[Rfam]
RNA sequence: CCAACCAAGGGGCGCUGCGACUUCCUACGUGAAGCCAGGCUUGGAUGGGUCAUCAACGUCAACGGCGCCCGGUAAAU
Numbered sequence: 001c002c003a004a005c006c007a008a009g010g011g012g013c014g015c016u017g018c019g020a021c022u023u024c025c026u027a028c029g030u031g032a033a034g035c036c037a038g039g040c041u042u043g044g045a046u047g048g049g050u051c052a053u054c055a056a057c058g059u060c061a062a063c064g065g066c067g068c069c070c071g072g073u074a075a076a077u
Stems, first nucleotide, its partner, number of pairs: 002047002005044004021034004
Shown here is a 77-nucleotide sequence from Permianibacter aggregans, a member of the family "SAH (S-adenosyl-L-homocysteine) riboswitch aptamer". A search with the family's covariance model found it, with a score of 54 bits. The organism belongs to Permianibacter, within Bacteria. Pairs were carried over by alignment from the consensus structure, which is taken from published work.